[Rfam]
RNA sequence: UCUCCAUUUCACUUGGUCUCUCGCCGGUCAGAGAAGGUGAGAGAUCAUGGGAAAUGGAGAGA
Numbered sequence: 001u002c003u004c005c006a007u008u009u010c011a012c013u014u015g016g017u018c019u020c021u022c023g024c025c026g027g028u029c030a031g032a033g034a035a036g037g038u039g040a041g042a043g044a045u046c047a048u049g050g051g052a053a054a055u056g057g058a059g060a061g062a
Stems, first nucleotide, its partner, number of pairs: 001060007010051001012049001014047004019042004
Record summary
The record is a 62-nucleotide RNA from Pristionchus pacificus, which matches "mir-8364 microRNA precursor family" in Rfam. The organism belongs to Pristionchus, within Eukaryota. It scores 67 bits against the family's covariance model. The base pairs follow the family's consensus structure, which was predicted with RNAalifold.